[Rfam]
RNA sequence: GGCGGCGGGCCCGCCGGAGUCGCCAUACAGGUGGAGAUUCCAAACCACUCUAAGGUGCUUUAGUCAAAAGCUAAGGUAUUGAGCGUUAGAGAAAAGGCAAUCUAAAUUGUCAGGU
Dot-bracket structure: (((((.....)))))((((((.((((....)))).))))))....(.((((((((.(((.((((.....)))).))).)).....))))))....((((((....))))))..).
About this RNA: Group II catalytic intron D1-D4-2: a 115-nucleotide RNA sequence from Erysipelatoclostridium sp. An173. Group II introns are found in rRNA, tRNA and mRNA of organelles in fungi, plants and protists, and also in mRNA in bacteria. NCBI's taxonomy places the organism under Bacteria, Bacillati, Bacillota, Erysipelotrichales, Thomasclavelia. The literature on the family includes a 2001 paper in Trends Genet by Bonen and Vogel, "The ins and outs of group II introns". The match comes from Rfam's covariance-model search (112 bits). The pairing is the family consensus, mapped onto this sequence.